Rfam assigns this 79-nucleotide RNA sequence from Myotis brandtii to the family "mir-9198 microRNA precursor family".
The source organism's lineage runs through Eukaryota, Dipnotetrapodomorpha, Tetrapoda, Theria and Myotis.
The match comes from Rfam's covariance-model search (94 bits).
Pairs were carried over by alignment from the consensus structure, which was predicted with RNAalifold.
The family has 6 seed sequences and 64 matches in Rfam 15.1.
Gene Ontology terms of the family: RISC complex and miRNA-mediated post-transcriptional gene silencing.
RNA sequence: GCCACUGCUCGCACCUGCUGCCGGCGCCUGGUGCCAGUCCCAAUCGCUUGGCGCCGUCAGUGGGUGUGAGCAGUGGCUG
Numbered sequence: 001g002c003c004a005c006u007g008c009u010c011g012c013a014c015c016u017g018c019u020g021c022c023g024g025c026g027c028c029u030g031g032u033g034c035c036a037g038u039c040c041c042a043a044u045c046g047c048u049u050g051g052c053g054c055c056g057u058c059a060g061u062g063g064g065u066g067u068g069a070g071c072a073g074u075g076g077c078u079g
Stems, first nucleotide, its partner, number of pairs: 004074017022056007
Dot-bracket structure: ...(((((((((((((((((.(((((((.....................))))))).))))))))))))))))).....